Rfam assigns this 186-nucleotide RNA from Desulfosarcina alkanivorans to the family "Group II catalytic intron D1-D4-3".
Rfam's curators write: Group II introns are found in rRNA, tRNA and mRNA of organelles in fungi, plants and protists, and also in mRNA in bacteria.
Pairs were carried over by alignment from the consensus structure.

RNA sequence: UAGCCGGUGACGGUGCCUGGGAAGGAGGCCGCCUUGCUACGGCAGGGUACCGCGAGCGCACGGGGCGAUGAACAAGAACCGAGUCAGGCGGGUUUGGUGGGACGAUCCUGCAACACAAGGUAAAGUCCUCUAUCCAUUAUAGGCCAAAUAGGUAUACUCGGCGCUCGUGUGCGCAAAGAUGCGUGU
Numbered sequence: 001u002a003g004c005c006g007g008u009g010a011c012g013g014u015g016c017c018u019g020g021g022a023a024g025g026a027g028g029c030c031g032c033c034u035u036g037c038u039a040c041g042g043c044a045g046g047g048u049a050c051c052g053c054g055a056g057c058g059c060a061c062g063g064g065g066c067g068a069u070g071a072a073c074a075a076g077a078a079c080c081g082a083g084u085c086a087g088g089c090g091g092g093u094u095u096g097g098u099g100g101g102a103c104g105a106u107c108c109u110g111c112a113a114c115a116c117a118a119g120g121u122a123a124a125g126u127c128c129u130c131u132a133u134c135c136a137u138u139a140u141a142g143g144c145c146a147a148a149u150a151g152g153u154a155u156a157c158u159c160g161g162c163g164c165u166c167g168u169g170u171g172c173g174c175a176a177a178g179a180u181g182c183g184u185g186u
Base pairs, nucleotide, nucleotide: 003014004013005012006011045186047184048183053178057173058172059171060170061169062168063166064165065164066163067162079161080160081159082158083157088153089152092149093148094147095146096145097144098143100128101127102126103125107120108119109118
Dot-bracket structure: ..((((....))))..............................(.((....(...(((((((((((...........(((((....((..(((((((.((((...(((........)))....))))..............)))))))..))...)))))))))).))))))....)....)).)